[Rfam]
The family of this 77-nucleotide sequence from Parnassius apollo is "Mammalian CPEB3 ribozyme".
Rfam describes the family as follows. The mammalian CPEB3 ribozyme is a self cleaving RNA located in the second intron of the CPEB3 gene which belongs to a family of genes regulating messenger RNA polyadenylation.
A search with the family's covariance model found it, with a score of 50 bits.

RNA sequence: UAUAUAUAUAAGGAGGUCAUUGUACAAGCGUGCUCGUCGCGACCCCUGUCAGCCCUUUUCAGGACUGCAAUUCUACA
Number, nucleotide and partner (000 for none) at each position: 001u000002a000003u000004a000005u000006a000007u000008a000009u000010a000011a000012g000013g046014a000015g044016g043017u042018c041019a000020u000021u077022g076023u075024a074025c000026a072027a071028g040029c039030g038031u000032g000033c000034u000035c000036g000037u000038c030039g029040c028041g018042a017043c016044c015045c000046c013047u000048g000049u000050c067051a066052g065053c000054c063055c062056u061057u000058u000059u000060c000061a056062g055063g054064a000065c052066u051067g050068c000069a000070a000071u027072u026073c000074u024075a023076c022077a021